[Rfam]
Shown here is a 74-nucleotide sequence from Muricoccus nepalensis, a member of the family "Makes More Granules Regulator RNA (mmgR)". The family is grouped with related families in Rfam's "suhB sRNA clan". The family's RNA type in Rfam is small RNA. It scores 52 bits against the family's covariance model. On this family, see Ceizel Borella et al., Microbiology 2018: "Expression of the small regulatory RNA gene mmgR is regulated negatively by AniA and positively by NtrC in Sinorhizobium meliloti 2011".
RNA sequence: GGCUGCUGUAUUUCUUGGACGUUUCCUCCCUAAACUCGGCGGUGCCUUCGGGCACCGCCUCUUUUUUUGCGCCC
Numbered sequence: 001g002g003c004u005g006c007u008g009u010a011u012u013u014c015u016u017g018g019a020c021g022u023u024u025c026c027u028c029c030c031u032a033a034a035c036u037c038g039g040c041g042g043u044g045c046c047u048u049c050g051g052g053c054a055c056c057g058c059c060u061c062u063u064u065u066u067u068u069g070c071g072c073c074c
Stems, first nucleotide, its partner, number of pairs: 008020002011017001038059009